[Rfam]
RNA sequence: CUUUCUUGCUACAUCCUCGCGACUAAUGAGAAUACUGAUAUUCACAAAAUAAGUAAAAAUAUUCAGUAUUCUCAUUAGCCGCGCGAACCGGUUGUAGCUAAAGAAGCUCACAUUAUUUAGAAAUAAAUUGACAAAAAUCUAUUUCCUAAAAUCAUUUUGUAAGUGUAAACCAAUUCUAAAAAUUUUUUCCGCUUUCUAGCAGAAAAGGGGCCAGUAGGCCCCUUUUC
Dot-bracket structure: ((((...(..(((....((((.((((((((((((((((........................))))))))))))))))...)))).......)))..).)))).........((..................................................................))........................((((((....)))))).....
Numbered sequence: 001c002u003u004u005c006u007u008g009c010u011a012c013a014u015c016c017u018c019g020c021g022a023c024u025a026a027u028g029a030g031a032a033u034a035c036u037g038a039u040a041u042u043c044a045c046a047a048a049a050u051a052a053g054u055a056a057a058a059a060u061a062u063u064c065a066g067u068a069u070u071c072u073c074a075u076u077a078g079c080c081g082c083g084c085g086a087a088c089c090g091g092u093u094g095u096a097g098c099u100a101a102a103g104a105a106g107c108u109c110a111c112a113u114u115a116u117u118u119a120g121a122a123a124u125a126a127a128u129u130g131a132c133a134a135a136a137a138u139c140u141a142u143u144u145c146c147u148a149a150a151a152u153c154a155u156u157u158u159g160u161a162a163g164u165g166u167a168a169a170c171c172a173a174u175u176c177u178a179a180a181a182a183u184u185u186u187u188u189c190c191g192c193u194u195u196c197u198a199g200c201a202g203a204a205a206a207g208g209g210g211c212c213a214g215u216a217g218g219c220c221c222c223u224u225u226u227c
Stems, first nucleotide, its partner, number of pairs: 001103004008098001011095003018085004023078016113182002207222006

Overview
SraG RNA: a 227-nucleotide RNA sequence from Arsenophonus endosymbiont of Aphis craccivora. NCBI's taxonomy places the organism under Bacteria, Pseudomonadati, Pseudomonadota, Gammaproteobacteria, Arsenophonus. By type it is a small RNA. Its family is annotated with sRNA-mediated gene silencing and mRNA binding in the Gene Ontology. The match comes from Rfam's covariance-model search (77 bits).